Overview: This 155-nucleotide sequence from Amborella trichopoda belongs to the Rfam family "MIR8565 microRNA precursor family". Its family is annotated with RISC complex and miRNA-mediated post-transcriptional gene silencing in the Gene Ontology.
[Rfam]
RNA sequence: CCUCCACCCAUGUGUGUAGGACCCCAAAAGAUCACCAUUAAAUUUGACAUGGAUCUUUAGAAAAGUUAUCACAUGGGUGUGGGAUUUGACUUUUUUUAGAGAUCCAUGCCAACUUUAAUGGUGAUCCUUUGGGGCCCUACACACAUACGUGGAGG
Numbered sequence: 001c002c003u004c005c006a007c008c009c010a011u012g013u014g015u016g017u018a019g020g021a022c023c024c025c026a027a028a029a030g031a032u033c034a035c036c037a038u039u040a041a042a043u044u045u046g047a048c049a050u051g052g053a054u055c056u057u058u059a060g061a062a063a064a065g066u067u068a069u070c071a072c073a074u075g076g077g078u079g080u081g082g083g084a085u086u087u088g089a090c091u092u093u094u095u096u097u098a099g100a101g102a103u104c105c106a107u108g109c110c111a112a113c114u115u116u117a118a119u120g121g122u123g124a125u126c127c128u129u130u131g132g133g134g135c136c137c138u139a140c141a142c143a144c145a146u147a148c149g150u151g152g153a154g155g
Stems, first nucleotide, its partner, number of pairs: 002154006010146004015141006022134007030126003034122009044112003048108011059096010069082005
Lineage of the source: Eukaryota > Streptophyta > Tracheophyta > Spermatophyta > Amborella.
The base pairs follow the family's consensus structure, which was predicted with RNAalifold.